[Rfam]
Group II catalytic intron D1-D4-2: a 117-nucleotide RNA sequence from Cellvibrio japonicus. Pairs were carried over by alignment from the consensus structure. The literature on the family includes a 2001 paper in Trends Genet by Bonen and Vogel, "The ins and outs of group II introns". Group II introns are found in rRNA, tRNA and mRNA of organelles in fungi, plants and protists, and also in mRNA in bacteria.
RNA sequence: GGUGGCAGGCCCACCGCAUUCGCUUUGCAGUAAGUGAGUGCAAACCACUUCAAGCGGCAUUGAUAAAGAGUCAUUGUCGUGAGCGUUGAAGAAAAGUCGGAAUAAAAUUCGGCAGGU
Numbered sequence: 001g002g003u004g005g006c007a008g009g010c011c012c013a014c015c016g017c018a019u020u021c022g023c024u025u026u027g028c029a030g031u032a033a034g035u036g037a038g039u040g041c042a043a044a045c046c047a048c049u050u051c052a053a054g055c056g057g058c059a060u061u062g063a064u065a066a067a068g069a070g071u072c073a074u075u076g077u078c079g080u081g082a083g084c085g086u087u088g089a090a091g092a093a094a095a096g097u098c099g100g101a102a103u104a105a106a107a108u109u110c111g112g113c114a115g116g117u
Stems, first nucleotide, its partner, number of pairs: 001015005016041006023034003046116001048091006054080002057077003061073004096113006